A member of the RNA family "Small nucleolar RNA SNORA53" from Erpetoichthys calabaricus, 249 nucleotides long.
Lineage of the source: Eukaryota > Metazoa > Chordata > Polypteridae > Erpetoichthys.
Rfam classes the family as an H/ACA-box small nucleolar RNA.
The snoRNA ACA53 belongs to the H/ACA family of pseudouridylation guide snoRNAs.
Gene Ontology terms of the family: RNA processing and nucleolus.
[Rfam]
RNA sequence: GGCACGUUUCCUUAGAUCUGCCUCUGUGGUGCUUACCUAGACUGAGUUCUGCUCAUCCUUUUGAGGUGAAUAGUUCCAGGUAGGGAGGCAUGCAGCAACUUGUAUGGUUGUACAGUCAGAGGUACUUGAGUCAUUGGCGUGCAAGAGCAACAUACCUGCUUUUUAGCCUCUUGUGUUCUGUUGGAAUUCUGGUUUGUCUUGAGGCAAACUGGUCAUCCACCUUCAGGACCAGGCUGGAGUGCAGACAGA
Numbered sequence: 001g002g003c004a005c006g007u008u009u010c011c012u013u014a015g016a017u018c019u020g021c022c023u024c025u026g027u028g029g030u031g032c033u034u035a036c037c038u039a040g041a042c043u044g045a046g047u048u049c050u051g052c053u054c055a056u057c058c059u060u061u062u063g064a065g066g067u068g069a070a071u072a073g074u075u076c077c078a079g080g081u082a083g084g085g086a087g088g089c090a091u092g093c094a095g096c097a098a099c100u101u102g103u104a105u106g107g108u109u110g111u112a113c114a115g116u117c118a119g120a121g122g123u124a125c126u127u128g129a130g131u132c133a134u135u136g137g138c139g140u141g142c143a144a145g146a147g148c149a150a151c152a153u154a155c156c157u158g159c160u161u162u163u164u165a166g167c168c169u170c171u172u173g174u175g176u177u178c179u180g181u182u183g184g185a186a187u188u189c190u191g192g193u194u195u196g197u198c199u200u201g202a203g204g205c206a207a208a209c210u211g212g213u214c215a216u217c218c219a220c221c222u223u224c225a226g227g228a229c230c231a232g233g234c235u236g237g238a239g240u241g242c243a244g245a246c247a248g249a
Stems, first nucleotide, its partner, number of pairs: 002142007011130005019124008027094002029091003036085003042079003046076001049073003055067001057066003095111006156244004163237001165235004177227004183221002190219003194215001196209002
Dot-bracket structure: .(((((((..(((((...(((((((((((((....(((...(((.(..(((...(.(((....))))...)))..))))...)))...))).))((((((.....)))))).....)))))))).))))).....))))))).............((((...(.((((........((((..((.....(((.(.((..........)).....).)))))..))))....)))).)...)))).....
It scores 145 bits against the family's covariance model.